[Rfam]
RNA sequence: UUGUCCACUGGAGUUCUCCUCAAACCACUUCAGUAGAUAGCUAGGCCUCACUGCAUUGCAUGCACUGUUAUAGAACUGUGGGCAUGCAUGGGGCCAAAAGCUUUGUAUAGUGAAGUGUUUGGGGGAACUCUAGCUGGUAA
Number, nucleotide and partner (000 for none) at each position: 001u000002u000003g000004u000005c136006c000007a000008c133009u132010g000011g130012a129013g128014u127015u126016c125017u124018c123019c122020u121021c000022a120023a119024a118025c000026c117027a116028c115029u114030u113031c112032a111033g000034u109035a108036g000037a106038u105039a104040g103041c000042u000043a000044g000045g000046c000047c000048u000049c000050a000051c000052u000053g000054c000055a000056u000057u000058g000059c000060a000061u000062g000063c000064a000065c000066u000067g000068u000069u000070a000071u000072a000073g000074a000075a000076c000077u000078g000079u000080g000081g000082g000083c000084a000085u000086g000087c000088a000089u000090g000091g000092g000093g000094c000095c000096a000097a000098a000099a000100g000101c000102u000103u040104u039105g038106u037107a000108u035109a034110g000111u032112g031113a030114a029115g028116u027117g026118u024119u023120u022121g020122g019123g018124g017125g016126a015127a014128c013129u012130c011131u000132a009133g008134c000135u000136g005137g000138u000139a000140a000
RNA: mir-395 microRNA precursor family
Organism: Zizania palustris